[Rfam]
RNA sequence: AAAAUGAACAGCGAUGGGGCUCGCUUAUUAAAAUGCCAUAUCCGGCUGAUAGCUCCUACCUUAAA
Numbered sequence: 001a002a003a004a005u006g007a008a009c010a011g012c013g014a015u016g017g018g019g020c021u022c023g024c025u026u027a028u029u030a031a032a033a034u035g036c037c038a039u040a041u042c043c044g045g046c047u048g049a050u051a052g053c054u055c056c057u058a059c060c061u062u063a064a065a
Stems, first nucleotide, its partner, number of pairs: 010025004016056006035046003
Fluoride riboswitch aptamer (crcB RNA motif): a 65-nucleotide RNA from Pelotomaculum propionicicum. The base pairs follow the family's consensus structure, which is taken from published work. NCBI's taxonomy places the organism under Bacteria, Bacillati, Clostridia, Eubacteriales, Pelotomaculum.